[Rfam]
Nucleotides: 102
Base pairs, nucleotide, nucleotide: 018088020086021085022084023083024082025081029048030047031046033044034043035042057078059074060073061072062071063070
Number, partner (000 for none) and nucleotide at each position: 001000c002000u003000u004000u005000u006000u007000c008000u009000g010000u011000g012000a013000u014000g015000c016000g017000c018088u019000g020086u021085c022084c023083a024082u025081a026000u027000a028000a029048u030047c031046c032000g033044a034043c035042u036000g037000a038000u039000u040000g041000g042035a043034g044033u045000g046031g047030g048029a049000g050000u051000a052000u053000c054000u055000a056000c057078g058000a059074g060073g061072c062071g063070a064000c065000c066000g067000c068000a069000a070063u071062c072061g073060u074059c075000c076000u077000a078057c079000a080000c081025u082024a083023u084022g085021g086020a087000a088018a089000g090000c091000a092000g093000c094000u095000u096000u097000u098000u099000u100000g101000g102000a
Rfam assigns this 102-nucleotide RNA sequence from Clostridium sp. CAG:169 to the family "Purine riboswitch aptamer". Riboswitches are metabolite binding domains within certain messenger RNAs that serve as precision sensors for their corresponding targets. Allosteric rearrangement of mRNA structure is mediated by ligand binding, and this results in modulation of gene expression. A class of riboswitches that selectively recognises guanine and becomes saturated at concentrations as low as 5 nM. In Bacillus subtilis, this mRNA motif is located on at least five separate transcriptional units that together encode 17 genes that are mostly involved in purine transport and purine nucleotide biosynthesis. Clan: Purine riboswitches. A search with the family's covariance model found it, with a score of 45 bits.